About this RNA: The family of this 205-nucleotide RNA sequence from Paraburkholderia phenazinium is "Burkholderia sRNA 11". Gene Ontology term of the family: bacterial biofilm matrix.

RNA sequence: AUCCCUCCGCUAAGGAGUCUCUUACGCGGAAACUCAUGGCCGCUAUCAUAGCGAGCCUGAUAGGGCUGAUCGCGCUGUCCGUGUCGACCACGGCUGUCGCAUGUGGAGACACUCGCCACUCAUCCGAUGGCAAGUGAUCUCGCCGCCCGAAGGCGCCGAGUGCGCACAAAAAAAGGCCUUCAUCCGACGAUGAAGGCCUUUUACU
Dot-bracket structure: .(...(((((..(((....)))...))))).....).(((((((.....)))).))).....((((.....((((...(((((.....)))))..).)))..(((..((............................)).))).))))....((((.....)))).....((((((((((((((....))))))))))))))...